[Rfam]
RNA: Brucella sRNA 1350
RNA sequence: AUGUAGGAAAGAAAUCAAUAAAUAGGAAAAUAGUCCUUGACUGCGUUACGGUGCUUUGGUAGAUAUUGGCUACGGUCGAGAAAUUGCGACUGAUGCCAUCUUAGCUACAUACCCCCGGCUGACAUGGUAAGGAUAGCCCCGGAAAGCCAUCGGUUUUUCGGGGUUUCUUUUAGAGA
Number, nucleotide and partner (000 for none) at each position: 001a000002u000003g000004u000005a000006g000007g171008a170009a169010a168011g167012a166013a165014a000015u000016c000017a000018a000019u000020a000021a000022a000023u000024a000025g000026g000027a000028a000029a000030a000031u000032a000033g134034u133035c132036c131037u130038u129039g128040a000041c127042u126043g125044c000045g123046u122047u121048a120049c117050g116051g115052u000053g114054c000055u000056u000057u000058g000059g108060u107061a106062g105063a000064u000065a000066u000067u098068g097069g096070c095071u000072a000073c092074g091075g090076u089077c088078g087079a000080g000081a000082a000083a000084u000085u000086g000087c078088g077089a076090c075091u074092g073093a000094u000095g070096c069097c068098a067099u000100c000101u000102u000103a000104g000105c062106u061107a060108c059109a000110u000111a000112c000113c000114c053115c051116c050117g049118g000119c000120u048121g047122a046123c045124a000125u043126g042127g041128u039129a038130a037131g036132g035133a034134u033135a000136g164137c163138c162139c161140c160141g159142g158143a157144a156145a155146g154147c153148c152149a000150u000151c000152g148153g147154u146155u145156u144157u143158u142159c141160g140161g139162g138163g137164u136165u013166u012167c011168u010169u009170u008171u007172a000173g000174a000175g000176a000